[Rfam]
RNA sequence: AAAAUGAUGAAGUUAGCCUUUUUUCGUUUCUUUUUUUACUUUAGCGCCUGAUAUCAGGGGGCUUUGCGCGUAAGAAAAGAAAUGAAAAAUAGCGCUUGAGCCUCCAGUGUGGAGGCUUUUUUAUU
Numbered sequence: 001a002a003a004a005u006g007a008u009g010a011a012g013u014u015a016g017c018c019u020u021u022u023u024u025c026g027u028u029u030c031u032u033u034u035u036u037u038a039c040u041u042u043a044g045c046g047c048c049u050g051a052u053a054u055c056a057g058g059g060g061g062c063u064u065u066g067c068g069c070g071u072a073a074g075a076a077a078a079g080a081a082a083u084g085a086a087a088a089a090u091a092g093c094g095c096u097u098g099a100g101c102c103u104c105c106a107g108u109g110u111g112g113a114g115g116c117u118u119u120u121u122u123a124u125u
Base pairs, nucleotide, nucleotide: 016093017092021088022087023086024085025084026083027082028081029080030079031078032077033076034075036073037072038071039070042056057067059065060064098118099117100116101115102114103113104112105111106110
RNA: Phenylalanine leader peptide
Organism: Xenorhabdus japonica